About this RNA: Rfam assigns this 196-nucleotide sequence from Rhododendron williamsianum to the family "U2 spliceosomal RNA". About the family: U2 is a small nuclear RNA (snRNA) component of the spliceosome (involved in pre-mRNA splicing). The source organism's lineage runs through Eukaryota, Streptophytina, Euphyllophyta, Magnoliopsida and Rhododendron. Pairs were carried over by alignment from the consensus structure, which is taken from published work. The family has 208 seed sequences and 71,512 matches in Rfam 15.1. Its family is annotated with U2 snRNP, mRNA branch site recognition and pre-mRNA branch point binding in the Gene Ontology. By type it is a spliceosomal small nuclear RNA.

RNA sequence: AUACCUUUCUCGGCCUUUUGGCUAAGAUCAAGUGUAGUAUCUGUUCUUAUCAGUUUAAUAUUUGAUACGUGGGCCAUCGGCUCACAUGAUAUUAAAUUAAUUUUUUGAGGGGAGGGCCCAUCACAGUAGCUUGCUGCUGGGGUUCCUCGCGUGUUGCCUUGGCGUUGCACUAUUGCCUCGGCCUGGCGCACCCCAC
Numbered sequence: 001a002u003a004c005c006u007u008u009c010u011c012g013g014c015c016u017u018u019u020g021g022c023u024a025a026g027a028u029c030a031a032g033u034g035u036a037g038u039a040u041c042u043g044u045u046c047u048u049a050u051c052a053g054u055u056u057a058a059u060a061u062u063u064g065a066u067a068c069g070u071g072g073g074c075c076a077u078c079g080g081c082u083c084a085c086a087u088g089a090u091a092u093u094a095a096a097u098u099a100a101u102u103u104u105u106u107g108a109g110g111g112g113a114g115g116g117c118c119c120a121u122c123a124c125a126g127u128a129g130c131u132u133g134c135u136g137c138u139g140g141g142g143u144u145c146c147u148c149g150c151g152u153g154u155u156g157c158c159u160u161g162g163c164g165u166u167g168c169a170c171u172a173u174u175g176c177c178u179c180g181g182c183c184u185g186g187c188g189c190a191c192c193c194c195a196c
Stems, first nucleotide, its partner, number of pairs: 008027003012023004048067006069085007112148005118142002126137004151189006158180001161177003
Dot-bracket structure: .......(((.((((....)))).)))....................((((((........)))))).(((((((...)))))))..........................(((((.((......((((....))))...)).)))))..((((((.(..(((...........)))..)...)))))).......